A member of the RNA family "mir-1175 microRNA precursor family" from Photinus pyralis, 71 nucleotides long.
Pairs were carried over by alignment from the consensus structure, which was predicted with RNAalifold.
[Rfam]
RNA sequence: AAAAAUGAGUGGAGAAGUGGUCUCAUCACUUUAUUACGAUUAGUGAGAUUCAACUCCUCCAACUUAUUUUG
Numbered sequence: 001a002a003a004a005a006u007g008a009g010u011g012g013a014g015a016a017g018u019g020g021u022c023u024c025a026u027c028a029c030u031u032u033a034u035u036a037c038g039a040u041u042a043g044u045g046a047g048a049u050u051c052a053a054c055u056c057c058u059c060c061a062a063c064u065u066a067u068u069u070u071g
Stems, first nucleotide, its partner, number of pairs: 007065003010061005017055001018053001023048002026046005